[Rfam]
RNA sequence: AAAGGGGCAAUAACCAAUUUCUUGUUUUAUCAAGGAGUUGCUAUUGCUCCUUUUAUUU
Numbered sequence: 001a002a003a004g005g006g007g008c009a010a011u012a013a014c015c016a017a018u019u020u021c022u023u024g025u026u027u028u029a030u031c032a033a034g035g036a037g038u039u040g041c042u043a044u045u046g047c048u049c050c051u052u053u054u055a056u057u058u
Stems, first nucleotide, its partner, number of pairs: 001053012014040001019036006